[Rfam]
RNA sequence: GGGUGAGGUAGAGGCGCGAUUUCUAUUAGUAGUUAUAGUGAGGCCGGAAGCCGUUGAAUUAUAGCAAAAGGAGCCAUCGCCGAAGUAGCAGAUACCAAAAUCUGCUGCUGGGACUAUAUUUAAAAGGUAUAGGACUGUCAUCAUAGUAUUAGCUCGGUACUUUGAUGUUGUGCUAUCUCACAA
Numbered sequence: 001g002g003g004u005g006a007g008g009u010a011g012a013g014g015c016g017c018g019a020u021u022u023c024u025a026u027u028a029g030u031a032g033u034u035a036u037a038g039u040g041a042g043g044c045c046g047g048a049a050g051c052c053g054u055u056g057a058a059u060u061a062u063a064g065c066a067a068a069a070g071g072a073g074c075c076a077u078c079g080c081c082g083a084a085g086u087a088g089c090a091g092a093u094a095c096c097a098a099a100a101u102c103u104g105c106u107g108c109u110g111g112g113a114c115u116a117u118a119u120u121u122a123a124a125a126g127g128u129a130u131a132g133g134a135c136u137g138u139c140a141u142c143a144u145a146g147u148a149u150u151a152g153c154u155c156g157g158u159a160c161u162u163u164g165a166u167g168u169u170g171u172g173c174u175a176u177c178u179c180a181c182a183a
Stems, first nucleotide, its partner, number of pairs: 006178006016080005023073002032065008084109010110136002114132007139167005
Dot-bracket structure: .....((((((....(((((..((.......((((((((..................))))))))......))..)))))...((((((((((......))))))))))((..(((((((.....)))))))..))..(((((...................))))).....)))))).....

Lysine riboswitch aptamer: a 183-nucleotide RNA sequence from Paratissierella segnis. Lineage of the source: Bacteria > Bacillati > Tissierellia > Tissierellales > Paratissierella. Rfam links the family to the GO term lysine biosynthetic process. It scores 110 bits against the family's covariance model.